A member of the RNA family "DUF805b RNA" from Flavobacterium branchiophilum, 35 nucleotides long.

RNA sequence: ACCCGAAAAGCCGAAAACGGUUAAUAGAGUAGGCA
Numbered sequence: 001a002c003c004c005g006a007a008a009a010g011c012c013g014a015a016a017a018c019g020g021u022u023a024a025u026a027g028a029g030u031a032g033g034c035a
Base pairs, nucleotide, nucleotide: 003020004019005018010034011033012032

By type it is a cis-regulatory element.
NCBI's taxonomy places the organism under Bacteria, Pseudomonadati, Bacteroidota, Flavobacteriales, Flavobacterium.